[Rfam]
RNA: MIR390 microRNA precursor family
Organism: Ricinus communis
RNA sequence: UGGAAGAAUCUAAUAAGCUCAGGAGGGAUAGCGCCAUGGAUGGAUAUGUGUUUUUAUGAAUAUGACUCGUCUUUUCUUGGCUUGCUUUUUUUAUCUCUUCUAUAGCGCUAUCCAUCCUGAGUUUCAUUGGUUCUUCUU
Numbered sequence: 001u002g003g004a005a006g007a008a009u010c011u012a013a014u015a016a017g018c019u020c021a022g023g024a025g026g027g028a029u030a031g032c033g034c035c036a037u038g039g040a041u042g043g044a045u046a047u048g049u050g051u052u053u054u055u056a057u058g059a060a061u062a063u064g065a066c067u068c069g070u071c072u073u074u075u076c077u078u079g080g081c082u083u084g085c086u087u088u089u090u091u092u093a094u095c096u097c098u099u100c101u102a103u104a105g106c107g108c109u110a111u112c113c114a115u116c117c118u119g120a121g122u123u124u125c126a127u128u129g130g131u132u133c134u135u136c137u138u
Stems, first nucleotide, its partner, number of pairs: 010129001016123009026113009